[Rfam]
RNA: ASpks TB sRNA
RNA sequence: UUUGAUGGAGCCGAGCCACAGCGGCUUUUCGGGGUCGCGCCCCUGCCCGUACGUCGACAGCAGCGCCCGCGCCUC
Number, nucleotide and partner (000 for none) at each position: 001u000002u000003u000004g000005a000006u000007g000008g000009a000010g000011c000012c000013g000014a026015g025016c024017c023018a000019c000020a000021g000022c000023g017024g016025c015026u014027u000028u000029u000030c000031g000032g070033g000034g000035u000036c000037g000038c065039g064040c000041c000042c000043c060044u059045g058046c000047c056048c000049g054050u000051a000052c000053g000054u049055c000056g047057a000058c045059a044060g043061c000062a000063g000064c039065g038066c000067c000068c000069g000070c032071g000072c000073c000074u000075c000